RNA sequence: AAUAGAUGAUGACAAUGUGUUUCGGUCCCAUAUGAUGUCCGGUGAUAAAACUGUUAACAUUUUUCUGAUGUU
Numbered sequence: 001a002a003u004a005g006a007u008g009a010u011g012a013c014a015a016u017g018u019g020u021u022u023c024g025g026u027c028c029c030a031u032a033u034g035a036u037g038u039c040c041g042g043u044g045a046u047a048a049a050a051c052u053g054u055u056a057a058c059a060u061u062u063u064u065c066u067g068a069u070g071u072u
Stems, first nucleotide, its partner, number of pairs: 001072004
RNA: Small nucleolar RNA SNORD73
Organism: Equus caballus